[Rfam]
RNA sequence: GUGCGCAUUGGUUGCUGCAAGCCAAGGGCGGUAGCGUG
Numbered sequence: 001g002u003g004c005g006c007a008u009u010g011g012u013u014g015c016u017g018c019a020a021g022c023c024a025a026g027g028g029c030g031g032u033a034g035c036g037u038g
Base pairs, nucleotide, nucleotide: 008025009024010023011022012021
RNA: JUMPstart RNA